[Rfam]
RNA: SAM/SAH riboswitch aptamer
RNA sequence: UCGCUGUCACAACGGCUUCCUGGCGUGGCAGUCAGACCCAACGGAGCG
Numbered sequence: 001u002c003g004c005u006g007u008c009a010c011a012a013c014g015g016c017u018u019c020c021u022g023g024c025g026u027g028g029c030a031g032u033c034a035g036a037c038c039c040a041a042c043g044g045a046g047c048g
Stems, first nucleotide, its partner, number of pairs: 004031007013022002015047003019044002